[Rfam]
RNA: Bacterial small subunit ribosomal RNA, nucleotides 1 to 556
RNA sequence: UAUAUGGAGAGUUUGAUCCUGGCUCAGGACGAACGCUGGCGGCGUGCCUAAUACAUGCAAGUCGAGCGAGCACUUCGGUGCUAGCGGCGAACGGGUGAGUAACACGUAGGCAACCUACCCAUAAGACGGGGAUAACUAUUGGAAACGAUAGCUAAUACCGGAUAGGAUAAAGAAUCGCAUGACUCUUUAUUUAAAGAUGCUUCGGCAUCACUAAUGGAUGGGCCUGCGGCGCAUUAGCUAGUUGGUGGGGUAGAAGCCUACCAAGGCAACGAUGCGUAGCCGACCUGAGAGGGUGAUCGGCCACACUGGGACUGAGACACGGCCCAGACUCCUACGGGAGGCAGCAGUAGGGAAUCUUCGGCAAUGGACGAAAGUCUGACCGAGCAACGCCGCGUGAGUGAAGAAGGUCUUCGGAUUGUAAAGCUCUGUUAUUAGGGAAGAAAAUAGGUAGCAGGAAAUGGCUAAUUAGUGACGGUACCUAAUGAGGAAGCCACGGCUAACUACGUGCCAGCAGCCGCGGUAAUACGUAGGUGGCAAGCGUUGUCCGGAAUUAUUG
Numbered sequence: 001u002a003u004a005u006g007g008a009g010a011g012u013u014u015g016a017u018c019c020u021g022g023c024u025c026a027g028g029a030c031g032a033a034c035g036c037u038g039g040c041g042g043c044g045u046g047c048c049u050a051a052u053a054c055a056u057g058c059a060a061g062u063c064g065a066g067c068g069a070g071c072a073c074u075u076c077g078g079u080g081c082u083a084g085c086g087g088c089g090a091a092c093g094g095g096u097g098a099g100u101a102a103c104a105c106g107u108a109g110g111c112a113a114c115c116u117a118c119c120c121a122u123a124a125g126a127c128g129g130g131g132a133u134a135a136c137u138a139u140u141g142g143a144a145a146c147g148a149u150a151g152c153u154a155a156u157a158c159c160g161g162a163u164a165g166g167a168u169a170a171a172g173a174a175u176c177g178c179a180u181g182a183c184u185c186u187u188u189a190u191u192u193a194a195a196g197a198u199g200c201u202u203c204g205g206c207a208u209c210a211c212u213a214a215u216g217g218a219u220g221g222g223c224c225u226g227c228g229g230c231g232c233a234u235u236a237g238c239u240a241g242u243u244g245g246u247g248g249g250g251u252a253g254a255a256g257c258c259u260a261c262c263a264a265g266g267c268a269a270c271g272a273u274g275c276g277u278a279g280c281c282g283a284c285c286u287g288a289g290a291g292g293g294u295g296a297u298c299g300g301c302c303a304c305a306c307u308g309g310g311a312c313u314g315a316g317a318c319a320c321g322g323c324c325c326a327g328a329c330u331c332c333u334a335c336g337g338g339a340g341g342c343a344g345c346a347g348u349a350g351g352g353a354a355u356c357u358u359c360g361g362c363a364a365u366g367g368a369c370g371a372a373a374g375u376c377u378g379a380c381c382g383a384g385c386a387a388c389g390c391c392g393c394g395u396g397a398g399u400g401a402a403g404a405a406g407g408u409c410u411u412c413g414g415a416u417u418g419u420a421a422a423g424c425u426c427u428g429u430u431a432u433u434a435g436g437g438a439a440g441a442a443a444a445u446a447g448g449u450a451g452c453a454g455g456a457a458a459u460g461g462c463u464a465a466u467u468a469g470u471g472a473c474g475g476u477a478c479c480u481a482a483u484g485a486g487g488a489a490g491c492c493a494c495g496g497c498u499a500a501c502u503a504c505g506u507g508c509c510a511g512c513a514g515c516c517g518c519g520g521u522a523a524u525a526c527g528u529a530g531g532u533g534g535c536a537a538g539c540g541u542u543g544u545c546c547g548g549a550a551u552u553a554u555u556g
Stems, first nucleotide, its partner, number of pairs: 009025005027546004032542006039393006045386002047351001052349003056346003061088003066085002069082005095304003105228007114221002119217004124212002127161001129159002136151006167190007175182002196209003230276003237267003242264008279301004283294004306327005329340004357383001359382003365378005396426004406417004430487001431483006440473001446467002490535005501530005511518002